[Rfam]
RNA sequence: GUUUUCCCAGCUGGAGAGAGGUCCGCCUCGCGCGGACCCACCGAAGGAGCAAACCCCGCCAGGGGUGAAUCUCUCAGGUAAAGCGGACAGCCGGGCUCCU
Numbered sequence: 001g002u003u004u005u006c007c008c009a010g011c012u013g014g015a016g017a018g019a020g021g022u023c024c025g026c027c028u029c030g031c032g033c034g035g036a037c038c039c040a041c042c043g044a045a046g047g048a049g050c051a052a053a054c055c056c057c058g059c060c061a062g063g064g065g066u067g068a069a070u071c072u073c074u075c076a077g078g079u080a081a082a083g084c085g086g087a088c089a090g091c092c093g094g095g096c097u098c099c100u
Base pairs, nucleotide, nucleotide: 006095007094008093010091011090012089013088020038021037022036023035024034025033040079041078042077043075044074047073048072049071053066054065
Glycine riboswitch aptamer: a 100-nucleotide sequence from Ramlibacter rhizophilus.
Lineage of the source: Bacteria > Pseudomonadati > Pseudomonadota > Comamonadaceae > Ramlibacter.
The match comes from Rfam's covariance-model search (63 bits).